[Rfam]
RNA sequence: UUCGUUAGAACUGGCCUUAGGUCGUCUCGCAACGGGGCGGCACCUUCAGCCCGCCACGCCGGCAGCGGGCGCACACCGGCAGAACGAUUCUGCCCGGCCUCGGAGAGGCCGACGGGACAUUACAGUCAAC
Dot-bracket structure: ....................((((((((.....)))))))).......((((((..........)))))).......((((((.....)))))).((((((...))))))....................
RNA: rmf RNA